[Rfam]
RNA: TPP riboswitch aptamer (THI element)
RNA sequence: UUAUGAUGCUAGGGGAGCUGCUUGCUGAGAGAACAGGUCUUUUCAUGUGACCUGUCAAACCCUCAACACCUGAUCCGGUCAAUGCCGGCGUAGGGAAGCAAUAUAUUUAUUUU
Numbered sequence: 001u002u003a004u005g006a007u008g009c010u011a012g013g014g015g016a017g018c019u020g021c022u023u024g025c026u027g028a029g030a031g032a033a034c035a036g037g038u039c040u041u042u043u044c045a046u047g048u049g050a051c052c053u054g055u056c057a058a059a060c061c062c063u064c065a066a067c068a069c070c071u072g073a074u075c076c077g078g079u080c081a082a083u084g085c086c087g088g089c090g091u092a093g094g095g096a097a098g099c100a101a102u103a104u105a106u107u108u109a110u111u112u113u
Base pairs, nucleotide, nucleotide: 007100008099009098010097011063012062013061014060017025018024033055034054035053036052037051038050039049069094070093071092072091075088076087077086078085